Overview:
Rfam assigns this 72-nucleotide RNA sequence from Bacillus subtilis to the family "tRNA". The family's consensus secondary structure is taken from published work. The family's RNA type in Rfam is transfer RNA. About the family: Transfer RNA (tRNA) molecules are approximately 80 nucleotides in length. The organism belongs to Bacillus, within Bacteria.
[Rfam]
RNA sequence: GGCCCGUUGGUCAAGCGGUUAAGACACCGCCCUUUCACGGCGGUAACACGGGUUCGAAUCCCGUACGGGUCA
Number, nucleotide and partner (000 for none) at each position: 001g071002g070003c069004c068005c067006g066007u065008u000009g000010g025011u024012c023013a000014a000015g000016c000017g000018g000019u000020u000021a000022a000023g012024a011025c010026a000027c043028c042029g041030c040031c039032c000033u000034u000035u000036c000037a000038c000039g031040g030041c029042g028043g027044u000045a000046a000047c000048a064049c063050g062051g061052g060053u000054u000055c000056g000057a000058a000059u000060c052061c051062c050063g049064u048065a007066c006067g005068g004069g003070u002071c001072a000